Overview:
Lysine riboswitch aptamer: a 172-nucleotide RNA from Clostridium estertheticum. Its family is annotated with lysine biosynthetic process in the Gene Ontology. Pairs were carried over by alignment from the consensus structure, which is taken from published work.
RNA sequence: ACCUAGGGUAGAGGUGCUGUGUCUAUUAGUACUUAUUUGGAGCAUGCAAGCGAGGAUAAAUAAGAAAAGGAGUUAUGGCCGAAGAAAAUAUAUUUGGUAAAAUUAUUUUCUGGUUUUACACAUAAUAUGUGUAGGGUUGUCACUAAUUUAUUAGUGGAGAGCUACAAGGUAC
Number, nucleotide and partner (000 for none) at each position: 001a000002c000003c000004u000005a000006g000007g000008g165009u164010a163011g162012a000013g000014g000015u000016g079017c078018u077019g076020u075021g074022u000023c072024u071025a000026u000027u000028a000029g000030u000031a000032c064033u063034u062035a061036u060037u059038u058039g057040g000041a000042g000043c000044a000045u000046g000047c000048a000049a000050g000051c000052g000053a000054g000055g000056a000057u039058a038059a037060a036061u035062a034063a033064g032065a000066a000067a000068a000069g000070g000071a024072g023073u000074u021075a020076u019077g018078g017079c016080c000081g000082a000083a111084g110085a109086a108087a107088a106089u105090a104091u000092a000093u101094u100095u000096g000097g000098u000099a000100a094101a093102a000103u000104u090105a089106u088107u087108u086109u085110c084111u083112g138113g137114u136115u135116u134117u133118a132119c131120a130121c129122a128123u000124a000125a000126u000127a000128u122129g121130u120131g119132u118133a117134g116135g115136g114137u113138u112139g000140u157141c156142a155143c154144u153145a152146a151147u000148u000149u000150a000151u146152u145153a144154g143155u142156g141157g140158a000159g000160a000161g000162c011163u010164a009165c008166a000167a000168g000169g000170u000171a000172c000